[Rfam]
RNA sequence: CGCCAGGGCCAAUUGGGGUACCUGAAGGGCCAAUCGGGGUCAGGAAC
Numbered sequence: 001c002g003c004c005a006g007g008g009c010c011a012a013u014u015g016g017g018g019u020a021c022c023u024g025a026a027g028g029g030c031c032a033a034u035c036g037g038g039g040u041c042a043g044g045a046a047c
Base pairs, nucleotide, nucleotide: 004024005023006022007021008019009018010017028041029040030039031038